[Rfam]
RNA sequence: GCGGAUGGCCGGAUGGCCACGUGUCCCGGAUUCGUCCGGAAUGCGAGGAAAGUCCGGACUCCAUGAAGCAACGGUGCCGGGUAACGCCCGGCCGGGGAAACCCGAGGGAAAGCGCCACAGAAAACAGGUGGCCCCGGCUUCGGCCGGGGUGACAGUGAAACGGUGGGGUAAGAGCCCACCGCGGGACGGGCAACCGGACCGGCACGGCAAGCCCCACCGGGAGCAAUGCCGAAUAGGGGCCUCGCGUCCCGGAGCGAUCCGGGGCAGGGCGGCUUCGGCCCAGAGGUCCGGGUUGGCAGCUAGACCCCGGCGGCGACGCCGGGGCCAGAUGAAUGGCCAUCCAGGGCGCGGCGCAAGCGGCGCCCGGACAGGAUCCGGCUUACAGGCCAUCCGCGCGC
Numbered sequence: 001g002c003g004g005a006u007g008g009c010c011g012g013a014u015g016g017c018c019a020c021g022u023g024u025c026c027c028g029g030a031u032u033c034g035u036c037c038g039g040a041a042u043g044c045g046a047g048g049a050a051a052g053u054c055c056g057g058a059c060u061c062c063a064u065g066a067a068g069c070a071a072c073g074g075u076g077c078c079g080g081g082u083a084a085c086g087c088c089c090g091g092c093c094g095g096g097g098a099a100a101c102c103c104g105a106g107g108g109a110a111a112g113c114g115c116c117a118c119a120g121a122a123a124a125c126a127g128g129u130g131g132c133c134c135c136g137g138c139u140u141c142g143g144c145c146g147g148g149g150u151g152a153c154a155g156u157g158a159a160a161c162g163g164u165g166g167g168g169u170a171a172g173a174g175c176c177c178a179c180c181g182c183g184g185g186a187c188g189g190g191c192a193a194c195c196g197g198a199c200c201g202g203c204a205c206g207g208c209a210a211g212c213c214c215c216a217c218c219g220g221g222a223g224c225a226a227u228g229c230c231g232a233a234u235a236g237g238g239g240c241c242u243c244g245c246g247u248c249c250c251g252g253a254g255c256g257a258u259c260c261g262g263g264g265c266a267g268g269g270c271g272g273c274u275u276c277g278g279c280c281c282a283g284a285g286g287u288c289c290g291g292g293u294u295g296g297c298a299g300c301u302a303g304a305c306c307c308c309g310g311c312g313g314c315g316a317c318g319c320c321g322g323g324g325c326c327a328g329a330u331g332a333a334u335g336g337c338c339a340u341c342c343a344g345g346g347c348g349c350g351g352c353g354c355a356a357g358c359g360g361c362g363c364c365c366g367g368a369c370a371g372g373a374u375c376c377g378g379c380u381u382a383c384a385g386g387c388c389a390u391c392c393g394c395g396c397g398c
Base pairs, nucleotide, nucleotide: 001394002393003392004391005390006389007388008387009386010385011383012341013340014339015338016337017336018335020045021044022043023042024041026039027038028037050381051380052379054378055377056376057375058374059223060222061221062220067275068274072219073218074217075216076215077091078090079089080088081087092106093104094103095102096101107214108213112212113211114208115207116206129154130153131150132149133148134147135146136145137144138143162180163179164178165177166176167175181203182201183200184199187196188195189194227298228297229296230295237289238288239287240286241285242284267281268280269279270278305324306323307322308321309320310319311318312317